[Rfam]
RNA sequence: AUAAUUGAAGGCUUAGCCAUGAAGUACUUUGUAAGUACAUAUAAUAUAAUAUCUUCACCCUUAUUAUGUAAUUAGUACAUUAUUGCUUGUCCCCAUGAAUAAUACUUA
Numbered sequence: 001a002u003a004a005u006u007g008a009a010g011g012c013u014u015a016g017c018c019a020u021g022a023a024g025u026a027c028u029u030u031g032u033a034a035g036u037a038c039a040u041a042u043a044a045u046a047u048a049a050u051a052u053c054u055u056c057a058c059c060c061u062u063a064u065u066a067u068g069u070a071a072u073u074a075g076u077a078c079a080u081u082a083u084u085g086c087u088u089g090u091c092c093c094c095a096u097g098a099a100u101a102a103u104a105c106u107u108a
Stems, first nucleotide, its partner, number of pairs: 005099002008096001010094002016086002019084001024038006039061001042057001044055001066080005

Overview:
The family of this 108-nucleotide RNA sequence from Callithrix jacchus is "Mitochondrial DNA control region secondary structure A". The organism belongs to Callithrix, within Eukaryota. It scores 55 bits against the family's covariance model. On this family, see Pereira et al., Mol Biol Evol 2008: "Evidence for variable selective pressures at a large secondary structure of the human mitochondrial DNA control region".